Shown here is a 145-nucleotide sequence from Gossypium gossypioides, a member of the family "MIR7502 microRNA precursor family".
Its family is annotated with miRNA-mediated post-transcriptional gene silencing and RISC complex in the Gene Ontology.

[Rfam]
Nucleotides: 145
Base pairs, nucleotide, nucleotide: 002144003143004142005141006140007139008138009137010136011135013133015131016130018128020126021125022124023123024122025121026120028118029117030116031115032114033113
Number, partner (000 for none) and nucleotide at each position: 001000u002144g003143u004142u005141g006140a007139a008138a009137a010136u011135u012000c013133u014000a015131u016130c017000c018128a019000u020126u021125u022124u023123u024122g025121u026120u027000g028118u029117u030116a031115a032114a033113a034000a035000u036000u037000g038000a039000u040000c041000u042000u043000u044000a045000u046000a047000u048000g049000u050000c051000a052000g053000c054000a055000u056000g057000a058000g059000g060000u061000a062000c063000a064000c065000a066000u067000g068000a069000c070000a071000u072000g073000u074000u075000a076000c077000a078000u079000a080000u081000c082000a083000u084000u085000g086000u087000u088000u089000g090000a091000u092000u093000a094000u095000u096000a097000u098000g099000u100000u101000a102000a103000c104000c105000a106000c107000a108000u109000c110000a111000g112000u113033u114032u115031u116030u117029a118028a119000c120026a121025a122024u123023a124022a125021a126020a127000u128018u129000g130016g131015a132000c133013g134000a135011a136010a137009u138008u139007u140006u141005u142004a143003a144002c145000a